mir-2131 microRNA precursor family: an 89-nucleotide RNA. Rfam links the family to the GO terms RISC complex and miRNA-mediated post-transcriptional gene silencing. Pairs were carried over by alignment from the consensus structure, which was predicted with RNAalifold. The sequence is in the family's curated seed alignment.
[Rfam]
RNA sequence: UCUUGUGGCUUCCAUGCAGAAGUGCACAGAAACAGCUAUUUGCAAUUAAGAAGUUGGCUGUUACUGUUUUUCUGAUGGAUGCUGUUGGA
Numbered sequence: 001u002c003u004u005g006u007g008g009c010u011u012c013c014a015u016g017c018a019g020a021a022g023u024g025c026a027c028a029g030a031a032a033c034a035g036c037u038a039u040u041u042g043c044a045a046u047u048a049a050g051a052a053g054u055u056g057g058c059u060g061u062u063a064c065u066g067u068u069u070u071u072c073u074g075a076u077g078g079a080u081g082c083u084g085u086u087g088g089a
Stems, first nucleotide, its partner, number of pairs: 001089003005085005011079005017074006026067004031062008040053002